RNA: mir-7 microRNA precursor family
RNA sequence: UUAAAGCUGACCAGGUGGAAGACUUGUGAUUUUGUUGUUUAUACAUUUUCAGCAACAGCAAAUCCGAGCUCUCCACCCGGAGGCAU
Numbered sequence: 001u002u003a004a005a006g007c008u009g010a011c012c013a014g015g016u017g018g019a020a021g022a023c024u025u026g027u028g029a030u031u032u033u034g035u036u037g038u039u040u041a042u043a044c045a046u047u048u049u050c051a052g053c054a055a056c057a058g059c060a061a062a063u064c065c066g067a068g069c070u071c072u073c074c075a076c077c078c079g080g081a082g083g084c085a086u
Stems, first nucleotide, its partner, number of pairs: 004086001006084001008083001011080002014077003018074001020072003024068001027066001028064005034059006